A member of the RNA family "Small nucleolar RNA snoR97" from Amborella trichopoda, 106 nucleotides long. Its family is annotated with RNA processing and nucleolus in the Gene Ontology. It is annotated as an H/ACA-box small nucleolar RNA. The family has 7 seed sequences and 862 matches in Rfam 15.1.
[Rfam]
RNA sequence: UACUUAAUAUGGGCAUUAAGGCUGAAAAACUCAAAAACCAUUGUGUUGUCAUCAGCUUCUUUCCUGUUUGUCACCAGGAAUGGAGUUAAAUAACAACACGACAUUA
Numbered sequence: 001u002a003c004u005u006a007a008u009a010u011g012g013g014c015a016u017u018a019a020g021g022c023u024g025a026a027a028a029a030c031u032c033a034a035a036a037a038c039c040a041u042u043g044u045g046u047u048g049u050c051a052u053c054a055g056c057u058u059c060u061u062u063c064c065u066g067u068u069u070g071u072c073a074c075c076a077g078g079a080a081u082g083g084a085g086u087u088a089a090a091u092a093a094c095a096a097c098a099c100g101a102c103a104u105u106a
Stems, first nucleotide, its partner, number of pairs: 042100007054087006061080004